[Rfam]
RNA sequence: CAUUACAUCUUGGCACUGGGAGAAUUCACAGUUGGUUAUAUAAUAUUCUGUGGUUCUGCGGGUGCCAAACUGUAA
Numbered sequence: 001c002a003u004u005a006c007a008u009c010u011u012g013g014c015a016c017u018g019g020g021a022g023a024a025u026u027c028a029c030a031g032u033u034g035g036u037u038a039u040a041u042a043a044u045a046u047u048c049u050g051u052g053g054u055u056c057u058g059c060g061g062g063u064g065c066c067a068a069a070c071u072g073u074a075a
Stems, first nucleotide, its partner, number of pairs: 003075005010068006017061001019059001020057001022056003026053006
Rfam assigns this 75-nucleotide RNA from Drosophila grimshawi to the family "mir-263 microRNA precursor family". Pairs were carried over by alignment from the consensus structure, which was predicted with RNAalifold. Its Rfam clan is "mir-182 clan". Its family is annotated with RISC complex and miRNA-mediated post-transcriptional gene silencing in the Gene Ontology. The literature on the family includes a 2009 paper in BMC Genomics by Li et al., "Direct sequencing and expression analysis of a large number of miRNAs in Aedes aegypti and a multi-species survey of novel mosquito miRNAs".